The family of this 84-nucleotide RNA from Senna tora is "Small nucleolar RNA R11/Z151". Pairs were carried over by alignment from the consensus structure, which was predicted with PFOLD. Rfam 15.1 lists 802 matches to the family in 218 species. For this family Rfam cites "Identification of 66 box C/D snoRNAs in Arabidopsis thaliana: extensive gene duplications generated multiple isoforms predicting new ribosomal RNA 2'-O-methylation sites" (Barneche et al., J Mol Biol, 2001). Rfam links the family to the GO terms nucleolus and RNA processing.

Nucleotides: 084
Base pairs, nucleotide, nucleotide: 002083003082004081005080
Number, partner (000 for none) and nucleotide at each position: 001000u002083g003082g004081c005080u006000u007000a008000u009000g010000a011000u012000g013000a014000u015000a016000a017000c018000c019000u020000a021000a022000u023000u024000a025000u026000c027000u028000u029000a030000g031000c032000g033000g034000a035000u036000u037000u038000c039000a040000g041000u042000g043000a044000g045000a046000u047000c048000u049000c050000g051000a052000u053000c054000a055000a056000u057000g058000a059000u060000c061000u062000g063000a064000a065000u066000g067000u068000u069000a070000c071000a072000c073000a074000c075000a076000c077000u078000g079000a080005a081004g082003c083002c084000u